TPP riboswitch aptamer (THI element): a 106-nucleotide RNA from Blautia sp. CAG:257. A search with the family's covariance model found it, with a score of 60 bits.
Nucleotides: 106
Base pairs, nucleotide, nucleotide: 007093008092012057013056014055017031018030019029020028021027038052039051040050041049042048062087063086064085065084068081069080070079071078
Number, partner (000 for none) and nucleotide at each position: 001000g002000a003000u004000u005000g006000u007093c008092g009000a010000c011000a012057g013056g014055g015000g016000a017031g018030c019029u020028u021027g022000u023000g024000u025000c026000a027021c028020a029019g030018g031017c032000u033000g034000a035000g036000a037000g038052g039051a040050a041049g042048u043000u044000g045000u046000a047000a048042a049041c050040u051039u052038c053000g054000a055014c056013c057012c058000g059000u060000a061000a062087c063086c064085u065084g066000a067000u068081u069080u070079g071078g072000g073000u074000a075000a076000u077000g078071c079070c080069a081068a082000c083000g084065u085064a086063g087062g088000u089000a090000u091000g092008c093007g094000c095000u096000g097000a098000a099000u100000g101000c102000g103000a104000g105000a106000u